[Rfam]
Nucleotides: 047
Stems, first nucleotide, its partner, number of pairs: 010025004032044002
Number, partner (000 for none) and nucleotide at each position: 001000a002000u003000c004000c005000c006000u007000u008000c009000u010025g011024u012023u013022g014000u015000g016000u017000a018000u019000c020000c021000g022013c023012a024011a025010u026000u027000g028000a029000u030000g031000c032044a033043g034000c035000c036000u037000c038000a039000a040000a041000u042000c043033u044032u045000u046000c047000a
The record is a 47-nucleotide RNA sequence from Tetracentron sinense, which matches "Plastid-ycf3 group II-D1 intron" in Rfam. Pairs were carried over by alignment from the consensus structure, which was predicted with LocARNA. The family has 385 seed sequences and 1,488 matches in Rfam 15.1. Rfam links the family to the GO term Group II intron splicing. NCBI's taxonomy places the organism under Eukaryota, Spermatophyta, Mesangiospermae, Trochodendraceae, Tetracentron. For this family Rfam cites "Retrograde signaling in plants: A critical review focusing on the GUN pathway and beyond" (Richter et al., Plant Commun, 2023).